[Rfam]
RNA sequence: GGUUCGCGUGAAGGAUUGCAGUGGAAAUCCUUUUUUGCCAGCACAAAAUUUUCUUCUUCAGAAAAUAACAUGUGGCAAAAGAGAUUGCAGCGGAAAGCCUGACCCGCA
Number, nucleotide and partner (000 for none) at each position: 001g000002g000003u000004u000005c000006g000007c000008g000009u000010g000011a000012a100013g099014g098015a000016u096017u095018g000019c000020a000021g091022u090023g000024g000025a000026a086027a085028u084029c083030c000031u000032u081033u080034u079035u078036u077037g076038c075039c074040a000041g000042c000043a000044c000045a000046a000047a000048a000049u000050u000051u000052u000053c000054u000055u000056c000057u000058u000059c000060a000061g000062a000063a000064a000065a000066u000067a000068a000069c000070a000071u000072g000073u000074g039075g038076c037077a036078a035079a034080a033081g032082a000083g029084a028085u027086u026087g000088c000089a000090g022091c021092g000093g000094a000095a017096a016097g000098c014099c013100u012101g000102a000103c000104c000105c000106g000107c000108a000
The record is a 108-nucleotide sequence from Flavobacterium noncentrifugens, which matches "Flavo-1 RNA" in Rfam. Taxonomically the source falls in Flavobacterium (Bacteria, Flavobacteriia, Flavobacteriales, Flavobacteriaceae). It is annotated as a small RNA.